Background
Purine riboswitch aptamer: a 101-nucleotide sequence from Paenibacillus sp. HGF7.
RNA sequence: CCAACCGAAAAUCAGCCAGCUCGUAUAAAGGCAGGAAUAGGCCUGCCAGUCUCUACCCGGUCACCGUAAAUGACCGGACUACGGGUGAUGACAAAUUCCGG
Numbered sequence: 001c002c003a004a005c006c007g008a009a010a011a012u013c014a015g016c017c018a019g020c021u022c023g024u025a026u027a028a029a030g031g032c033a034g035g036a037a038u039a040g041g042c043c044u045g046c047c048a049g050u051c052u053c054u055a056c057c058c059g060g061u062c063a064c065c066g067u068a069a070a071u072g073a074c075c076g077g078a079c080u081a082c083g084g085g086u087g088a089u090g091a092c093a094a095a096u097u098c099c100g101g
Stems, first nucleotide, its partner, number of pairs: 019086007030047006057077007
Pairs were carried over by alignment from the consensus structure, which is taken from published work. A reference for the family is Mandal et al. (2003), "Riboswitches Control Fundamental Biochemical Pathways in Bacillus subtilis and Other Bacteria", Cell. NCBI's taxonomy places the organism under Bacteria, Bacilli, Caryophanales, Paenibacillaceae, Paenibacillus. Gene Ontology term of the family: purine nucleobase biosynthetic process.